[Rfam]
RNA: tRNA
Organism: Luteitalea sp. TBR-22
RNA sequence: GCCGAUGUAGCUCAGUUGGCAGAGCGCGUCCUUGGUAAGGACGAGGUCACCGGUUCAAUCCCGGUCAUCGGCU
Number, nucleotide and partner (000 for none) at each position: 001g072002c071003c070004g069005a068006u067007g066008u000009a000010g025011c024012u023013c022014a000015g000016u000017u000018g000019g000020c000021a000022g013023a012024g011025c010026g000027c043028g042029u041030c040031c039032u000033u000034g000035g000036u000037a000038a000039g031040g030041a029042c028043g027044a000045g000046g000047u000048c000049a065050c064051c063052g062053g061054u000055u000056c000057a000058a000059u000060c000061c053062c052063g051064g050065u049066c007067a006068u005069c004070g003071g002072c001073u000